[Rfam]
RNA sequence: GGACAUUGAUGAAUUCUGUGAUAGGUCUCGUUCGUCGUAAUUGGUCUUUUUUUGACCUUGCCGACCAUCCUGUUAUAUCACCACCCAUAUUCUGAGUCC
Dot-bracket structure: ((((.......................................(.(.......)....)....................................))))
RNA: Small nucleolar RNA Z43